[Rfam]
RNA sequence: GGCGUAAAGGGCAUGUAGGCAGUUUUGCAAGCUUGGUGUGAAAUCCCGGGGCUCAACCCCGGAACCGCAUUGAGAACUAUAAGACUAGAGUUACUGAAGUGAAACUGGAAUUCCAGGUGUAGGGGUGAAAUCUGUAGAUAUCUGGAAGAACACCAAUGGCGAAGGCAAGUUUCAGGCAGAUAACUGACGCUGAGGUGCGAAGGUGCGGGGAGCGAACAGGAUUAGAUACCCUGGUAGUCCGCACAGUAAACGAUGUACACUAGGUGUCUGGUCAAGAGACUGGGUGCCAAAGCAAACGUGAUAAGUGUACCGCCUGGGAAGUAUGCCCGCAAGGGUGAAACUCAAAGGAAU
Numbered sequence: 001g002g003c004g005u006a007a008a009g010g011g012c013a014u015g016u017a018g019g020c021a022g023u024u025u026u027g028c029a030a031g032c033u034u035g036g037u038g039u040g041a042a043a044u045c046c047c048g049g050g051g052c053u054c055a056a057c058c059c060c061g062g063a064a065c066c067g068c069a070u071u072g073a074g075a076a077c078u079a080u081a082a083g084a085c086u087a088g089a090g091u092u093a094c095u096g097a098a099g100u101g102a103a104a105c106u107g108g109a110a111u112u113c114c115a116g117g118u119g120u121a122g123g124g125g126u127g128a129a130a131u132c133u134g135u136a137g138a139u140a141u142c143u144g145g146a147a148g149a150a151c152a153c154c155a156a157u158g159g160c161g162a163a164g165g166c167a168a169g170u171u172u173c174a175g176g177c178a179g180a181u182a183a184c185u186g187a188c189g190c191u192g193a194g195g196u197g198c199g200a201a202g203g204u205g206c207g208g209g210g211a212g213c214g215a216a217c218a219g220g221a222u223u224a225g226a227u228a229c230c231c232u233g234g235u236a237g238u239c240c241g242c243a244c245a246g247u248a249a250a251c252g253a254u255g256u257a258c259a260c261u262a263g264g265u266g267u268c269u270g271g272u273c274a275a276g277a278g279a280c281u282g283g284g285u286g287c288c289a290a291a292g293c294a295a296a297c298g299u300g301a302u303a304a305g306u307g308u309a310c311c312g313c314c315u316g317g318g319a320a321g322u323a324u325g326c327c328c329g330c331a332a333g334g335g336u337g338a339a340a341c342u343c344a345a346a347g348g349a350a351u
Base pairs, nucleotide, nucleotide: 001314002313003312009311011198012197013196014195016192018191019190020189022085023084024083025082026081027080030078031077032074033073034072035071036070037069038068039067040066046062047061048060049059050058051057089185090184091183094179095178096177100174101173102172103171104170105169106168107151111147112146113145114144115143116142117141118140122133123132124131159166160165203244204243205242206241207240208239212238213237217233218232219231220230255310256309257308258307259306260305263288264287265286266285267284268283269282270281271280272279273278292299293298316343317342318341325336326335327334328333